[Rfam]
RNA sequence: GGAAGAGAAUCGUCCCCGGUGGGGCGUUCGGACUUCAAAUCCGAGUGAGGCAGCGAGCCUGUCUUUGGUGGGUUCGACUCCCGCUCUCUUCC
Numbered sequence: 001g002g003a004a005g006a007g008a009a010u011c012g013u014c015c016c017c018g019g020u021g022g023g024g025c026g027u028u029c030g031g032a033c034u035u036c037a038a039a040u041c042c043g044a045g046u047g048a049g050g051c052a053g054c055g056a057g058c059c060u061g062u063c064u065u066u067g068g069u070g071g072g073u074u075c076g077a078c079u080c081c082c083g084c085u086c087u088c089u090u091c092c
Stems, first nucleotide, its partner, number of pairs: 001092008011026006027045006047065005069083004
The record is a 92-nucleotide RNA from Bradyrhizobium sp. Leo170, which matches "Selenocysteine transfer RNA" in Rfam.
The match comes from Rfam's covariance-model search (76 bits).
Taxonomically the source falls in Bradyrhizobium (Bacteria, Pseudomonadota, Hyphomicrobiales, Nitrobacteraceae).